The family of this 128-nucleotide RNA from Shimia sp. SK013 is "FMN riboswitch aptamer (RFN element)".
RNA sequence: CAUCAUUCUCGGGGCGGGGUGAAAUUCCCCACCGGCGGUGAAAGCCCGCGAGCGCCACAAAUGUGGGUCAGCAGACACCGGUGUAAUUCCGGGGCCGACGGUUAAAGUCCGGAUGAUAGAGAAUGGGA
Numbered sequence: 001c002a003u004c005a006u007u008c009u010c011g012g013g014g015c016g017g018g019g020u021g022a023a024a025u026u027c028c029c030c031a032c033c034g035g036c037g038g039u040g041a042a043a044g045c046c047c048g049c050g051a052g053c054g055c056c057a058c059a060a061a062u063g064u065g066g067g068u069c070a071g072c073a074g075a076c077a078c079c080g081g082u083g084u085a086a087u088u089c090c091g092g093g094g095c096c097g098a099c100g101g102u103u104a105a106a107g108u109c110c111g112g113a114u115g116a117u118a119g120a121g122a123a124u125g126g127g128a
Stems, first nucleotide, its partner, number of pairs: 003126008017029003031108002033097002035049004044095002052072002076093001078092004099111003
The family's consensus secondary structure is taken from published work.